A member of the RNA family "Flavo-1 RNA" from Moheibacter lacus, 137 nucleotides long. Pairs were carried over by alignment from the consensus structure, which is taken from published work.
RNA sequence: UCAUAGCCCGGAUGGUAGUGGAUAUCCUUUUUCCAGAGGCUUGUGUUUUUCUCGCGGAAAAAGCGUGAUAACGACUUUUUUUGCGCAAGAAAAACCAAGGAAACGGAAAAAGAUAGAAGCGAACAGCCGGAAAUGGC
Numbered sequence: 001u002c003a004u005a006g007c008c009c010g011g012a013u014g015g016u017a018g019u020g021g022a023u024a025u026c027c028u029u030u031u032u033c034c035a036g037a038g039g040c041u042u043g044u045g046u047u048u049u050u051c052u053c054g055c056g057g058a059a060a061a062a063g064c065g066u067g068a069u070a071a072c073g074a075c076u077u078u079u080u081u082u083g084c085g086c087a088a089g090a091a092a093a094a095c096c097a098a099g100g101a102a103a104c105g106g107a108a109a110a111a112g113a114u115a116g117a118a119g120c121g122a123a124c125a126g127c128c129g130g131a132a133a134u135g136g137c
Stems, first nucleotide, its partner, number of pairs: 009129003013125002018120002023115004029110006
Taxonomically the source falls in Moheibacter (Bacteria, Pseudomonadati, Flavobacteriia, Weeksellaceae).